[Rfam]
RNA: Rhizobiales sRNA Atu_Ti1
RNA sequence: GUCCAGAAUGCGGCGGACCAGAGCCAGAAGCCUGCAAGGGUUAUGGCUACAGCCGGUCGAUAUUGCGUCGUCAUGAGCGCGAGACCGGCUGU
Numbered sequence: 001g002u003c004c005a006g007a008a009u010g011c012g013g014c015g016g017a018c019c020a021g022a023g024c025c026a027g028a029a030g031c032c033u034g035c036a037a038g039g040g041u042u043a044u045g046g047c048u049a050c051a052g053c054c055g056g057u058c059g060a061u062a063u064u065g066c067g068u069c070g071u072c073a074u075g076a077g078c079g080c081g082a083g084a085c086c087g088g089c090u091g092u
Base pairs, nucleotide, nucleotide: 001018002017003016004015023047024046025045026044031039032038049092050091051090052089053088054087055086056085057084058083063082064081065080066079067078068077